[Rfam]
RNA: Streptococcus sRNA SpF66
RNA sequence: GUUACCGCCUCCUAGACUGGUACGGAAGGGAGGUGUCAGUUGUGGAAAUAGUCGUAUCUCUUAUUGUUGCUAUCGCGGCAGGUGUGAUUAGCCAUCUCAUCUGCAAAUGGUUGGAUAGUGACAAAUAGCAGGUAACCAGCCUAUGGAUUAAGCCACCAUACCAAAACGGAAUAGAAAAGCCCCGGAGAUGCCGCUCCGGGGCUUUUCGUUUGCG
Numbered sequence: 001g002u003u004a005c006c007g008c009c010u011c012c013u014a015g016a017c018u019g020g021u022a023c024g025g026a027a028g029g030g031a032g033g034u035g036u037c038a039g040u041u042g043u044g045g046a047a048a049u050a051g052u053c054g055u056a057u058c059u060c061u062u063a064u065u066g067u068u069g070c071u072a073u074c075g076c077g078g079c080a081g082g083u084g085u086g087a088u089u090a091g092c093c094a095u096c097u098c099a100u101c102u103g104c105a106a107a108u109g110g111u112u113g114g115a116u117a118g119u120g121a122c123a124a125a126u127a128g129c130a131g132g133u134a135a136c137c138a139g140c141c142u143a144u145g146g147a148u149u150a151a152g153c154c155a156c157c158a159u160a161c162c163a164a165a166a167c168g169g170a171a172u173a174g175a176a177a178a179g180c181c182c183c184g185g186a187g188a189u190g191c192c193g194c195u196c197c198g199g200g201g202c203u204u205u206u207c208g209u210u211u212g213c214g
Stems, first nucleotide, its partner, number of pairs: 005030002009025002011020002032157004044062002047059001048057002079103003083099002086096003109141006116134002122131001159214001161212001163211002167208003176205012